[Rfam]
RNA sequence: AUAAAUCUUCAGGGCGGGGUGAAAUUCCCCACCGGCGGUACAGCCCGCGAGCCGUAAGGCACGAUUCGGUGAAACUCCGAAGCCGACAGUAGAGUCUGGAUGGAAGAAGAUUAGU
Numbered sequence: 001a002u003a004a005a006u007c008u009u010c011a012g013g014g015c016g017g018g019g020u021g022a023a024a025u026u027c028c029c030c031a032c033c034g035g036c037g038g039u040a041c042a043g044c045c046c047g048c049g050a051g052c053c054g055u056a057a058g059g060c061a062c063g064a065u066u067c068g069g070u071g072a073a074a075c076u077c078c079g080a081a082g083c084c085g086a087c088a089g090u091a092g093a094g095u096c097u098g099g100a101u102g103g104a105a106g107a108a109g110a111u112u113a114g115u
Base pairs, nucleotide, nucleotide: 004112005111006110007109008108009107010106017029018028019027031095032094033085034084035048036047037046038045043083044082053059065081066080067079068078069077087098088097089096
The record is a 115-nucleotide RNA sequence from Ileibacterium valens, which matches "FMN riboswitch aptamer (RFN element)" in Rfam. A search with the family's covariance model found it, with a score of 117 bits. The family's consensus secondary structure is taken from published work.